This 366-nucleotide sequence from Desulfotalea psychrophila belongs to the Rfam family "transfer-messenger RNA". For this family Rfam cites "The tmRNA Website: invasion by an intron" (Williams, Nucleic Acids Res, 2002). About the family: Bacterial tmRNA, also known as 10Sa RNA or SsrA, is named for its dual tRNA and mRNA-like properties. Its role is to liberate the mRNA from a stalled ribosome. To accomplish this part of the tmRNA is used as a reading frame that ends in a translation stop signal. The broken mRNA is replaced in the ribosome by the tmRNA and translation of the tmRNA leads to addition of a proteolysis tag to the incomplete protein enabling recognition by a protease. The sequence is in the family's curated seed alignment.

RNA sequence: GGGGGCGAAACGGCUUCGACGGGGAUGUAUAAGCUCUACGUUGCAUGUCGAGCAACUGCCAGCUCGUAAAAAAGGCGGAAACUAAUAUAAUCGCAGACGAUUAUAACUACGCAGUAGCAGCUUAAUAACUGUCAUACUGCCGUCUCUCCAGUCCUCCGCUCAUGAGGGUUGGGUCCGAGGCGUCGACCAAAAUGAGCUAGCAAUCGGGUGGUGUUCUGGUCGCCCCGGCGCGAAAAUAUACAGAAUAGCGUUAUAGUAUCCCUGUUCCGACGGAAGCUAAAUCGCGAAAACUAAGUGGGAACUAAACAUGUAGAUACGAGAGGGGAGCAUUUGCGGACGCGGGUUCGACUCCCGCCGCCUCCACCA
Numbered sequence: 001g002g003g004g005g006c007g008a009a010a011c012g013g014c015u016u017c018g019a020c021g022g023g024g025a026u027g028u029a030u031a032a033g034c035u036c037u038a039c040g041u042u043g044c045a046u047g048u049c050g051a052g053c054a055a056c057u058g059c060c061a062g063c064u065c066g067u068a069a070a071a072a073a074g075g076c077g078g079a080a081a082c083u084a085a086u087a088u089a090a091u092c093g094c095a096g097a098c099g100a101u102u103a104u105a106a107c108u109a110c111g112c113a114g115u116a117g118c119a120g121c122u123u124a125a126u127a128a129c130u131g132u133c134a135u136a137c138u139g140c141c142g143u144c145u146c147u148c149c150a151g152u153c154c155u156c157c158g159c160u161c162a163u164g165a166g167g168g169u170u171g172g173g174u175c176c177g178a179g180g181c182g183u184c185g186a187c188c189a190a191a192a193u194g195a196g197c198u199a200g201c202a203a204u205c206g207g208g209u210g211g212u213g214u215u216c217u218g219g220u221c222g223c224c225c226c227g228g229c230g231c232g233a234a235a236a237u238a239u240a241c242a243g244a245a246u247a248g249c250g251u252u253a254u255a256g257u258a259u260c261c262c263u264g265u266u267c268c269g270a271c272g273g274a275a276g277c278u279a280a281a282u283c284g285c286g287a288a289a290a291c292u293a294a295g296u297g298g299g300a301a302c303u304a305a306a307c308a309u310g311u312a313g314a315u316a317c318g319a320g321a322g323g324g325g326a327g328c329a330u331u332u333g334c335g336g337a338c339g340c341g342g343g344u345u346c347g348a349c350u351c352c353c354g355c356c357g358c359c360u361c362c363a364c365c366a
Base pairs, nucleotide, nucleotide: 001362002361003360004359005358006357007356020335021334023332024331025330026329027328028327034323035322039318040317041316044310045309046308047307048306049066050065051064052063053062056078057077058076059075060074114137115136116135117132118131119130120129141182142181143180144179145178146177147173148172149171150170152168153167154166155165158197159196160195161194162193163192200231201230204227206225207224208223213246214245215244216243248285249284250283252281254279255278256277257276259274260273261272264302265301266300267299270296271295339355340354341353342352343351